The family of this 87-nucleotide RNA sequence from Punica granatum is "Small nucleolar RNA Z102/R77". By type it is a C/D-box small nucleolar RNA. Gene Ontology terms of the family: RNA processing and nucleolus.
[Rfam]
RNA sequence: GAAUGAGGUGAUGACAGAUAUGAUUCCCUAUUGGUUUGAUUGCCAAUAUGAUGGCAAUUCAUUUGUAUUAGCUCUAUCUGAUCAUUC
Numbered sequence: 001g002a003a004u005g006a007g008g009u010g011a012u013g014a015c016a017g018a019u020a021u022g023a024u025u026c027c028c029u030a031u032u033g034g035u036u037u038g039a040u041u042g043c044c045a046a047u048a049u050g051a052u053g054g055c056a057a058u059u060c061a062u063u064u065g066u067a068u069u070a071g072c073u074c075u076a077u078c079u080g081a082u083c084a085u086u087c
Stems, first nucleotide, its partner, number of pairs: 002086004038058001041056004